[Rfam]
RNA sequence: GUGUCUCUGUUGCUCUACAAAACGAAUAAAUCUUUCGCCUUUUACUAAAGAUUUCCGUGUAGAGGAACAUUUAACGACUGACAGAGAAUUUUUGGAAGCUUUGCUGCAGCAAAGCU
Numbered sequence: 001g002u003g004u005c006u007c008u009g010u011u012g013c014u015c016u017a018c019a020a021a022a023c024g025a026a027u028a029a030a031u032c033u034u035u036c037g038c039c040u041u042u043u044a045c046u047a048a049a050g051a052u053u054u055c056c057g058u059g060u061a062g063a064g065g066a067a068c069a070u071u072u073a074a075c076g077a078c079u080g081a082c083a084g085a086g087a088a089u090u091u092u093u094g095g096a097a098g099c100u101u102u103g104c105u106g107c108a109g110c111a112a113a114g115c116u
Base pairs, nucleotide, nucleotide: 003078004077005076009068010067011066013064014063015062016061017060018059019058028054029053030052031051032050033049034048035047096116098115099114100113101112102111103110
The family of this 116-nucleotide RNA from Sclerurus mexicanus is "U5 spliceosomal RNA". Taxonomically the source falls in Sclerurus (Eukaryota, Deuterostomia, Craniata, Euteleostomi). Rfam 15.1 lists 28,527 matches to the family in 2,489 species. The family's RNA type in Rfam is spliceosomal small nuclear RNA. Rfam's curators write: U5 RNA is a component of both types of known spliceosome. The precise function of this molecule is unknown, though it is known that the 5' loop is required for splice site selection and p220 binding, and that both the 3' stem-loop and the Sm site are important for Sm protein binding and cap methylation.